[Rfam]
RNA sequence: AAUAAUUAUGGGCAAAACCUUCGAAAGAUGGCGACGCAAAACUAUAGGGUCUAAUCCAUAGUAAUAUGAGAAUGACAGCCAGUUGCAGUA
Number, nucleotide and partner (000 for none) at each position: 001a000002a000003u000004a000005a000006u000007u000008a000009u000010g000011g000012g037013c036014a000015a000016a000017a000018c031019c030020u000021u028022c027023g000024a000025a000026a000027g022028a021029u000030g019031g018032c000033g000034a000035c000036g013037c012038a000039a000040a084041a083042c082043u081044a000045u000046a000047g080048g079049g076050u075051c074052u000053a000054a000055u000056c070057c068058a067059u066060a000061g000062u000063a000064a000065u000066a059067u058068g057069a000070g056071a000072a000073u000074g051075a050076c049077a000078g000079c048080c047081a043082g042083u041084u040085g000086c000087a000088g000089u000090a000
This 90-nucleotide RNA from Drancourtella sp. An57 belongs to the Rfam family "c-di-GMP-I riboswitch aptamer". GEMM was predicted in a large-scale screen for bacterial structured RNA regulatory elements. A reference for the family is Weinberg et al. (2007), "Identification of 22 candidate structured RNAs in bacteria using the CMfinder comparative genomics pipeline", Nucleic Acids Res.